[Rfam]
RNA sequence: AGGCGUGGCCGUGGCGGCCGCGUGUCUCCCCGUGAGACACGAGGAAAGUCCGAACACGGCAGGACACGGUGGUGGGUAACACCCACCCGUCCGACGGGCGACCGACGGACGCGGGACAGUGCCACAGAAAGCAAACCGCCGAUGGCCCGCAAGGGCACAGGCAAGGGUGAAAGGGUGCGGUAAGAGCGCACCGCUCCGCUGGCGACAGCGGGGGCACGGUAAACCCCACCGCGUGCAAGGCCAAGCAGUCGGGUCUGCAGACGCAGGCGAGUCGUCCGCUCGCUCCGCAAGGAACCCGGCGGGUAGGCCGCUCGAGCCGGUCGGCAACGACCGGCCUGGAGAAAUGGCCGCCGUCCGCCCACCCCGGCGGAUCACAGAAUUCGGCUUACGAGCCACGCCCCGAA
Numbered sequence: 001a002g003g004c005g006u007g008g009c010c011g012u013g014g015c016g017g018c019c020g021c022g023u024g025u026c027u028c029c030c031c032g033u034g035a036g037a038c039a040c041g042a043g044g045a046a047a048g049u050c051c052g053a054a055c056a057c058g059g060c061a062g063g064a065c066a067c068g069g070u071g072g073u074g075g076g077u078a079a080c081a082c083c084c085a086c087c088c089g090u091c092c093g094a095c096g097g098g099c100g101a102c103c104g105a106c107g108g109a110c111g112c113g114g115g116a117c118a119g120u121g122c123c124a125c126a127g128a129a130a131g132c133a134a135a136c137c138g139c140c141g142a143u144g145g146c147c148c149g150c151a152a153g154g155g156c157a158c159a160g161g162c163a164a165g166g167g168u169g170a171a172a173g174g175g176u177g178c179g180g181u182a183a184g185a186g187c188g189c190a191c192c193g194c195u196c197c198g199c200u201g202g203c204g205a206c207a208g209c210g211g212g213g214g215c216a217c218g219g220u221a222a223a224c225c226c227c228a229c230c231g232c233g234u235g236c237a238a239g240g241c242c243a244a245g246c247a248g249u250c251g252g253g254u255c256u257g258c259a260g261a262c263g264c265a266g267g268c269g270a271g272u273c274g275u276c277c278g279c280u281c282g283c284u285c286c287g288c289a290a291g292g293a294a295c296c297c298g299g300c301g302g303g304u305a306g307g308c309c310g311c312u313c314g315a316g317c318c319g320g321u322c323g324g325c326a327a328c329g330a331c332c333g334g335c336c337u338g339g340a341g342a343a344a345u346g347g348c349c350g351c352c353g354u355c356c357g358c359c360c361a362c363c364c365c366g367g368c369g370g371a372u373c374a375c376a377g378a379a380u381u382c383g384g385c386u387u388a389c390g391a392g393c394c395a396c397g398c399c400c401c402g403a404a
Stems, first nucleotide, its partner, number of pairs: 002399008011389001013352007021041008046387003050384005055235004063286001067231005072086005087113001088111006114226002119224002121220003136166002138162003143159002145156004174192006193215001194213008239309004248300006280291001316335008
Dot-bracket structure: .((((((((.(.(((((((.((((((((.....))))))))....[[[.[[[[[((((....[...((((((((((.....)))))(((((((............)))))).)((...(((((............(((((..((((((....)))).)))))..)).......((((((.......))))))(((((((((....)))))))).)..)))..)))))))))))))...((((.....((((((..........................(.....]....)...)))))).....))))......((((((((....))))))))..........)))))))...........................]]]]]]]].)..)))))))).....
Annotation:
This 404-nucleotide RNA sequence from Mucisphaera calidilacus belongs to the Rfam family "Bacterial RNase P class A". NCBI's taxonomy places the organism under Bacteria, Pseudomonadati, Planctomycetota, Phycisphaeraceae, Mucisphaera. The family's RNA type in Rfam is ribozyme.